[Rfam]
RNA sequence: AACGCGCAUUCGCGUAUCAUCUUUCACCUCCCUGUUGGACUUCGGCCGAGCUUUGUGCUCGGCCUUUUUU
Numbered sequence: 001a002a003c004g005c006g007c008a009u010u011c012g013c014g015u016a017u018c019a020u021c022u023u024u025c026a027c028c029u030c031c032c033u034g035u036u037g038g039a040c041u042u043c044g045g046c047c048g049a050g051c052u053u054u055g056u057g058c059u060c061g062g063c064c065u066u067u068u069u070u
Stems, first nucleotide, its partner, number of pairs: 006025001008023001012021001044064008
Source information:
This 70-nucleotide sequence from Pseudoponticoccus marisrubri belongs to the Rfam family "Singlet oxygen resistance RNA X". By type it is a small RNA. SorX (RSs2461)like SorY is a singlet oxygen induced sRNA that counteracts oxidative stress by targeting mRNA for a transporter in Rhodobacter. It also has an impact on resistance against organic hydroperoxides. It targets SD sequence of potA mRNA via an aSD sequence.